[Rfam]
RNA sequence: CUGGCACCGGUUCACGUCUUGCACCCGCAUGGCGACCCGGCGGCC
Numbered sequence: 001c002u003g004g005c006a007c008c009g010g011u012u013c014a015c016g017u018c019u020u021g022c023a024c025c026c027g028c029a030u031g032g033c034g035a036c037c038c039g040g041c042g043g044c045c
Base pairs, nucleotide, nucleotide: 003045004044005043007040008039009038010037015034016033017032018031020029021028022027
Shown here is a 45-nucleotide RNA from Antricoccus suffuscus, a member of the family "L31-Actinobacteria ribosomal protein leader". Taxonomically the source falls in Antricoccus (Bacteria, Actinomycetota, Actinomycetes, Antricoccaceae). It is annotated as a cis-regulatory leader.